RNA sequence: UCCAUCGCGAGGUGGAAUCUGAAGGAAGCCGGAUGUCAGGGCGAGGAGUUCUGGCGGGCAAAUUUUCGGGCCGACGAACAGAAAUCUUAUAUAAGGCCGGAUUGGGACGGACGACUCUGCUAUACAAGAGAAAGUCCAAUGCUACCCGAAUCCCAUACGGUAAAUGAGGCGGCCACAUGAAAGGAAGGUUAUCGUU
Numbered sequence: 001u002c003c004a005u006c007g008c009g010a011g012g013u014g015g016a017a018u019c020u021g022a023a024g025g026a027a028g029c030c031g032g033a034u035g036u037c038a039g040g041g042c043g044a045g046g047a048g049u050u051c052u053g054g055c056g057g058g059c060a061a062a063u064u065u066u067c068g069g070g071c072c073g074a075c076g077a078a079c080a081g082a083a084a085u086c087u088u089a090u091a092u093a094a095g096g097c098c099g100g101a102u103u104g105g106g107a108c109g110g111a112c113g114a115c116u117c118u119g120c121u122a123u124a125c126a127a128g129a130g131a132a133a134g135u136c137c138a139a140u141g142c143u144a145c146c147c148g149a150a151u152c153c154c155a156u157a158c159g160g161u162a163a164a165u166g167a168g169g170c171g172g173c174c175a176c177a178u179g180a181a182a183g184g185a186a187g188g189u190u191a192u193c194g195u196u
Base pairs, nucleotide, nucleotide: 001016002015003014004013005012006011052194053193058189059188063183064182065181066180067179068178069174070173071172072171073170085169086168087167088166089165090164096161097160098159103155104154105153106152107151109137110136111135112134115130116129117128118127
The family of this 196-nucleotide RNA from Youngiibacter fragilis is "Group II catalytic intron D1-D4-3". The source organism's lineage runs through Bacteria, Bacillati, Bacillota, Clostridiaceae and Youngiibacter fragilis. Pairs were carried over by alignment from the consensus structure. Its family is annotated with Group II intron splicing in the Gene Ontology. On this family, see Bonen and Vogel, Trends Genet 2001: "The ins and outs of group II introns".